[Rfam]
RNA sequence: AAGCGAGGACGACCUCCCCCGCAUUGGGACAUUUCAUUCGGGACGACCCGA
Number, nucleotide and partner (000 for none) at each position: 001a000002a000003g019004c000005g016006a015007g014008g013009a000010c000011g000012a000013c008014c007015u006016c005017c000018c000019c003020c000021g000022c000023a000024u000025u000026g000027g000028g000029a000030c000031a000032u000033u000034u000035c000036a000037u000038u051039c050040g049041g048042g047043a000044c000045g000046a000047c042048c041049c040050g039051a038
This 51-nucleotide sequence from Sedimentitalea nanhaiensis belongs to the Rfam family "Guanidine-II riboswitch aptamer (mini-ykkC)". The source organism's lineage runs through Bacteria, Pseudomonadati, Alphaproteobacteria, Rhodobacterales and Sedimentitalea.